[Rfam]
RNA sequence: GUGUGUGCAGGCAUCUUUCCAGUCUACAUGUGGAUCCAGGAGUCUGCAGGCUGGUUAGAUGGUUGUCACGUAC
Numbered sequence: 001g002u003g004u005g006u007g008c009a010g011g012c013a014u015c016u017u018u019c020c021a022g023u024c025u026a027c028a029u030g031u032g033g034a035u036c037c038a039g040g041a042g043u044c045u046g047c048a049g050g051c052u053g054g055u056u057a058g059a060u061g062g063u064u065g066u067c068a069c070g071u072a073c
Stems, first nucleotide, its partner, number of pairs: 007066004012061005019054007030047006
RNA: mir-456 microRNA precursor family